[Rfam]
RNA sequence: CCUCCCUUUCUUGGCGGGGACCGGGCGUACGAUCCCGCUCCCCGUUAUGUGCGGAGGCAGAGGAAGAGGGCUCCGGGCCCCUCGGCGUCAUGUCUUCGGUGCCGGCUGCUUCCCGUCCGCCGGUUCUAUCCUCAAGCGCCGAGACACGG
Numbered sequence: 001c002c003u004c005c006c007u008u009u010c011u012u013g014g015c016g017g018g019g020a021c022c023g024g025g026c027g028u029a030c031g032a033u034c035c036c037g038c039u040c041c042c043c044g045u046u047a048u049g050u051g052c053g054g055a056g057g058c059a060g061a062g063g064a065a066g067a068g069g070g071c072u073c074c075g076g077g078c079c080c081c082u083c084g085g086c087g088u089c090a091u092g093u094c095u096u097c098g099g100u101g102c103c104g105g106c107u108g109c110u111u112c113c114c115g116u117c118c119g120c121c122g123g124u125u126c127u128a129u130c131c132u133c134a135a136g137c138g139c140c141g142a143g144a145c146a147c148g149g
Stems, first nucleotide, its partner, number of pairs: 001057005015044006022037004083141006102123005108117001
Record summary: Shown here is a 149-nucleotide RNA from Oryctolagus cuniculus, a member of the family "Small nucleolar RNA SNORA57". For this family Rfam cites "Identification of 13 novel human modification guide RNAs" (Vitali et al., Nucleic Acids Res, 2003). The source organism's lineage runs through Eukaryota, Metazoa, Sarcopterygii, Tetrapoda and Oryctolagus. Rfam 15.1 lists 1,736 matches to the family in 530 species. Rfam classes the family as an H/ACA-box small nucleolar RNA. The sequence is in the family's curated seed alignment. Rfam describes the family as follows. U99 belongs to the H/ACA class of snoRNAs which are thought to guide the sites of modification of uridines to pseudouridines, the target for this family is unknown.